[Rfam]
RNA sequence: AAGCAGUUACAUGACUGGCGGAUAAAAUGUGGAGUACCACAAAGGAUUGUAACUGUUGCUAAGCCGACCGCCUGGGCAAUAACA
Number, nucleotide and partner (000 for none) at each position: 001a000002a000003g056004c055005a054006g053007u052008u051009a050010c049011a048012u000013g000014a000015c044016u043017g072018g071019c070020g069021g068022a000023u000024a000025a000026a000027a000028u000029g040030u039031g038032g037033a000034g000035u000036a000037c032038c031039a030040c029041a000042a000043a016044g015045g000046a000047u000048u011049g010050u009051a008052a007053c006054u005055g004056u003057u000058g000059c000060u000061a000062a000063g077064c076065c075066g000067a000068c021069c020070g019071c018072c017073u000074g000075g065076g064077c063078a000079a000080u000081a000082a000083c000084a000
The family of this 84-nucleotide RNA sequence from Desulforamulus ferrireducens is "ZMP/ZTP riboswitch aptamer (pfl RNA motif)". Rfam links the family to the GO terms regulation of purine nucleotide biosynthetic process and one-carbon metabolic process.